[Rfam]
The family of this 176-nucleotide sequence from Lactobacillus sp. LL6 is "Lysine riboswitch aptamer".
RNA sequence: CAAUGCAAUAGAGGUUGCGACAAGUCACGAAAUCAUCGCGAGUACGCGUAUAUUUUGACCGAUGAUGUAAGGAUUGCCGCCGAAAUAAGCUUUUAGUCGUGAUAAAAGUUUGUUGGGCUGCAGGAGAAGAUGCUGCAGACUGUCUCGGUUCGUCCCCGGGGAGCGCUAUAAGAUUU
Dot-bracket structure: .......((((.....(((.(((........(((((((.....................))))))).......))).)))...((((((((((((.......))))))))))))((.((((((.(.....).)))))).)).((((((.......))))))....)))).......
The family's consensus secondary structure is taken from published work.